Rfam assigns this 106-nucleotide RNA from Dioscorea zingiberensis to the family "Plastid-psbA-1 3UTR RNA".
Pairs were carried over by alignment from the consensus structure, which was predicted with LocARNA.
Plastid psbA-1 is a non-coding RNA (ncRNA) present in plastids.
[Rfam]
RNA sequence: UUGAAGCUCCAUCUACAAAUGGAUAAGACUUUUGUCUUAAUGUAUAUGAAUCGUUGAAGGAGCAAUAUCCAAUAUCUUGUUUGAGCAAGAAGUUUGGUAUUGCUCC
Numbered sequence: 001u002u003g004a005a006g007c008u009c010c011a012u013c014u015a016c017a018a019a020u021g022g023a024u025a026a027g028a029c030u031u032u033u034g035u036c037u038u039a040a041u042g043u044a045u046a047u048g049a050a051u052c053g054u055u056g057a058a059g060g061a062g063c064a065a066u067a068u069c070c071a072a073u074a075u076c077u078u079g080u081u082u083g084a085g086c087a088a089g090a091a092g093u094u095u096g097g098u099a100u101u102g103c104u105c106c
Base pairs, nucleotide, nucleotide: 008023009022010021011020012019059106060105061104062103063102064101065100066099067098068097071094072093075090076089077088078087